[Rfam]
RNA sequence: UCUCUGGUGAGCUGUAUGGCUUUUUAUUCCUAUCUGAUGGUGGUACAGAUUCAUAUAGGGAUGGAAGCCAUGCAGCUCGCUGAGA
Numbered sequence: 001u002c003u004c005u006g007g008u009g010a011g012c013u014g015u016a017u018g019g020c021u022u023u024u025u026a027u028u029c030c031u032a033u034c035u036g037a038u039g040g041u042g043g044u045a046c047a048g049a050u051u052c053a054u055a056u057a058g059g060g061a062u063g064g065a066a067g068c069c070a071u072g073c074a075g076c077u078c079g080c081u082g083a084g085a
Stems, first nucleotide, its partner, number of pairs: 002084003006081018026062008035053003
RNA: mir-135 microRNA precursor family